[Rfam]
Notes:
Shown here is a 333-nucleotide sequence from Nannospalax galili, a member of the family "Mason-Pfizer monkey virus packaging signal". It scores 123 bits against the family's covariance model. It is annotated as a cis-regulatory element. The organism belongs to Nannospalax, within Eukaryota.

RNA sequence: UUGUGCCCAAUGUGGCUUGGAUACUGGGGACAAUGUGAGGGACAUGACGAAAAAAGAAGGGGUGCGCACCUGCUCAAAUAGUUCGGAGACGUCGCGGUAGCAACGACGUGAAAAGGAAUGCUUUUGACAAAUUUUGAGACACAUUGGAGCCGCCGUGGGAACCUGCCUCAGUUGAAACCGAAAGUAAGUGGAAACGUCUGAUCAUGGGGCAAGAAUUGAGUCAGCAUGAGCUUUAUGUUAAGCAGUUGAAGGAUGCUUUAAAGACACUGGGAGUAAAGGUUAAGACAAGGGGUUUGUUUCAUUUUUUUGACUUUGUGAAAGAGACCUGCCCCU
Numbered sequence: 001u002u003g004u005g006c007c008c009a010a011u012g013u014g015g016c017u018u019g020g021a022u023a024c025u026g027g028g029g030a031c032a033a034u035g036u037g038a039g040g041g042a043c044a045u046g047a048c049g050a051a052a053a054a055a056g057a058a059g060g061g062g063u064g065c066g067c068a069c070c071u072g073c074u075c076a077a078a079u080a081g082u083u084c085g086g087a088g089a090c091g092u093c094g095c096g097g098u099a100g101c102a103a104c105g106a107c108g109u110g111a112a113a114a115g116g117a118a119u120g121c122u123u124u125u126g127a128c129a130a131a132u133u134u135u136g137a138g139a140c141a142c143a144u145u146g147g148a149g150c151c152g153c154c155g156u157g158g159g160a161a162c163c164u165g166c167c168u169c170a171g172u173u174g175a176a177a178c179c180g181a182a183a184g185u186a187a188g189u190g191g192a193a194a195c196g197u198c199u200g201a202u203c204a205u206g207g208g209g210c211a212a213g214a215a216u217u218g219a220g221u222c223a224g225c226a227u228g229a230g231c232u233u234u235a236u237g238u239u240a241a242g243c244a245g246u247u248g249a250a251g252g253a254u255g256c257u258u259u260a261a262a263g264a265c266a267c268u269g270g271g272a273g274u275a276a277a278g279g280u281u282a283a284g285a286c287a288a289g290g291g292g293u294u295u296g297u298u299u300c301a302u303u304u305u306u307u308u309g310a311c312u313u314u315g316u317g318a319a320a321g322a323g324a325c326c327u328g329c330c331c332c333u
Base pairs, nucleotide, nucleotide: 006029007028008027012024013023014022034105035104036103141185142184144181145180151174155169157167158166195209197208198207199206200205217260218259219258220256221255267309269307270306271305272304273303277295278294279293280292281291318333321330